RNA sequence: UUAAAAGUGUUGAUGAGGACACGAUCUUAGAUCAAUGUUCAAAAGAGAGGAAAGUGUUGGUGAAAUCUUUCCGUUCAAUUGUCUAAUGAUUACCACCUCUGAACUCUAUAUCUGAACUGAUAUUCAGAUAAGAUAUAGCGUCUUUCUACGUUACAGAAAAUGAGCCAAACAUGUAGAGUGUUUGGGAAUCUAAGGUGGAACCACGAGCUAACGCUUGUCCUUUUG
Numbered sequence: 001u002u003a004a005a006a007g008u009g010u011u012g013a014u015g016a017g018g019a020c021a022c023g024a025u026c027u028u029a030g031a032u033c034a035a036u037g038u039u040c041a042a043a044a045g046a047g048a049g050g051a052a053a054g055u056g057u058u059g060g061u062g063a064a065a066u067c068u069u070u071c072c073g074u075u076c077a078a079u080u081g082u083c084u085a086a087u088g089a090u091u092a093c094c095a096c097c098u099c100u101g102a103a104c105u106c107u108a109u110a111u112c113u114g115a116a117c118u119g120a121u122a123u124u125c126a127g128a129u130a131a132g133a134u135a136u137a138g139c140g141u142c143u144u145u146c147u148a149c150g151u152u153a154c155a156g157a158a159a160a161u162g163a164g165c166c167a168a169a170c171a172u173g174u175a176g177a178g179u180g181u182u183u184g185g186g187a188a189u190c191u192a193a194g195g196u197g198g199a200a201c202c203a204c205g206a207g208c209u210a211a212c213g214c215u216u217g218u219c220c221u222u223u224u225g
Base pairs, nucleotide, nucleotide: 007104008103015099016098017097018096027086028085029084030083031082040073049072050071051070052069053068054067107137108136109135110134111133112132113131139150140149141148165185166184167183168182169181170180171179192222193221194220195219203218204217205216206215207214
Shown here is a 225-nucleotide RNA sequence from Pelagirhabdus alkalitolerans, a member of the family "T-box leader". Uncharged tRNA acts as the effector for transcription antitermination of genes in the T-box leader family. The base pairs follow the family's consensus structure, which is taken from published work. By type it is a cis-regulatory leader.